[Rfam]
RNA: Burkholderia sRNA Bp1_Cand684_SIPHT
Organism: Caballeronia glathei
RNA sequence: AAGAAAGUGACUGCCGCCCCGCACAGGGGCGAAGCUUAUAAACCAAAGCCAAUACAAGUUUCAUAGGAGCGCAGGCGCACCAGACGUUGUAAACAACAAACCCCAACCCCGAGCGCCAGCGGGACGCCU
Numbered sequence: 001a002a003g004a005a006a007g008u009g010a011c012u013g014c015c016g017c018c019c020c021g022c023a024c025a026g027g028g029g030c031g032a033a034g035c036u037u038a039u040a041a042a043c044c045a046a047a048g049c050c051a052a053u054a055c056a057a058g059u060u061u062c063a064u065a066g067g068a069g070c071g072c073a074g075g076c077g078c079a080c081c082a083g084a085c086g087u088u089g090u091a092a093a094c095a096a097c098a099a100a101c102c103c104c105a106a107c108c109c110c111g112a113g114c115g116c117c118a119g120c121g122g123g124a125c126g127c128c129u
Base pairs, nucleotide, nucleotide: 012091013090014089015031016030017029018028019027020026058085059084060083113120114119